[Rfam]
Record summary: The record is a 599-nucleotide part of an RNA from Hepatocystis sp. ex Piliocolobus tephrosceles, which matches "Eukaryotic small subunit ribosomal RNA" in Rfam. The match comes from Rfam's covariance-model search (1316 bits). The family is grouped with related families in Rfam's "SSU clan". The base pairs follow the family's consensus structure, which is taken from published work. Taxonomically the source falls in Hepatocystis (Eukaryota, Sar, Alveolata, Apicomplexa).
RNA sequence: UGUCUCAAAGAUUAAGCCAUGCAAGUGAAAGUAUAUGCAUAUUUUGAUAUGUAGAAACUGCGAACGGCUCAUUAAAACAGUUAUAAUCUACUUGACAAUUUUUUUUUUUAUAAGGAUAACUACGGAAAAGCUGUAGCUAAUACUUGGUUUUUUUUAAAUGUUUUUUACAAUUAAUUCUUCGGAAUUUUUGUAAUAAGCAUAGUAUUUGUUAGUCCUUUUUAAAAAGAAAUUUGAACUUAAGGAAUUAUAACAAAGAAAGAACACAUAAAAAAUAGUUGCUAUUUUUUUUAGUGUGUAUCAAUCGAGUUUCUGACCUAUCAGCUUUUGAUGUUAGGAUAUAGGCUUAACAUGGCUAUGACGGGUAACGGGGAAUUAGAGUUCGAUUCCGGAGAGGGAGCCUGAGAAACGGCUACCACAUCUAAGGAAGGCAGCAGGCGCGUAAAUUACCCAAUUUUAAAUAAAAGAGGUAGUGACAAGAAAUAAUAGGACAAGACUUAUUUCUAAGUUUUGUAUCUGUACUGAUAGAAAUUUAAAAACUUUCUAGAACUCCAUUGGAGGGCAAGUCUGGUGCCAGCAGCCGCGGUAAUUCCAGCUCCAAU
Numbered sequence: 001u002g003u004c005u006c007a008a009a010g011a012u013u014a015a016g017c018c019a020u021g022c023a024a025g026u027g028a029a030a031g032u033a034u035a036u037g038c039a040u041a042u043u044u045u046g047a048u049a050u051g052u053a054g055a056a057a058c059u060g061c062g063a064a065c066g067g068c069u070c071a072u073u074a075a076a077a078c079a080g081u082u083a084u085a086a087u088c089u090a091c092u093u094g095a096c097a098a099u100u101u102u103u104u105u106u107u108u109u110a111u112a113a114g115g116a117u118a119a120c121u122a123c124g125g126a127a128a129a130g131c132u133g134u135a136g137c138u139a140a141u142a143c144u145u146g147g148u149u150u151u152u153u154u155u156a157a158a159u160g161u162u163u164u165u166u167a168c169a170a171u172u173a174a175u176u177c178u179u180c181g182g183a184a185u186u187u188u189u190g191u192a193a194u195a196a197g198c199a200u201a202g203u204a205u206u207u208g209u210u211a212g213u214c215c216u217u218u219u220u221a222a223a224a225a226g227a228a229a230u231u232u233g234a235a236c237u238u239a240a241g242g243a244a245u246u247a248u249a250a251c252a253a254a255g256a257a258a259g260a261a262c263a264c265a266u267a268a269a270a271a272a273u274a275g276u277u278g279c280u281a282u283u284u285u286u287u288u289u290a291g292u293g294u295g296u297a298u299c300a301a302u303c304g305a306g307u308u309u310c311u312g313a314c315c316u317a318u319c320a321g322c323u324u325u326u327g328a329u330g331u332u333a334g335g336a337u338a339u340a341g342g343c344u345u346a347a348c349a350u351g352g353c354u355a356u357g358a359c360g361g362g363u364a365a366c367g368g369g370g371a372a373u374u375a376g377a378g379u380u381c382g383a384u385u386c387c388g389g390a391g392a393g394g395g396a397g398c399c400u401g402a403g404a405a406a407c408g409g410c411u412a413c414c415a416c417a418u419c420u421a422a423g424g425a426a427g428g429c430a431g432c433a434g435g436c437g438c439g440u441a442a443a444u445u446a447c448c449c450a451a452u453u454u455u456a457a458a459u460a461a462a463a464g465a466g467g468u469a470g471u472g473a474c475a476a477g478a479a480a481u482a483a484u485a486g487g488a489c490a491a492g493a494c495u496u497a498u499u500u501c502u503a504a505g506u507u508u509u510g511u512a513u514c515u516g517u518a519c520u521g522a523u524a525g526a527a528a529u530u531u532a533a534a535a536a537c538u539u540u541c542u543a544g545a546a547c548u549c550c551a552u553u554g555g556a557g558g559g560c561a562a563g564u565c566u567g568g569u570g571c572c573a574g575c576a577g578c579c580g581c582g583g584u585a586a587u588u589c590c591a592g593c594u595c596c597a598a599u
Stems, first nucleotide, its partner, number of pairs: 003478003009471001010438001016436003020433003025061002030059003068391003078312003083307002087305002093300003111146004120136006153201001155199001160194002206253006215241003223232003262293003269289004314362003321353003328350008366388004370381004393414002396411003416427001418425002444469001446468003452464004484516003488511009523543002525540001527539002552598006565592004574581002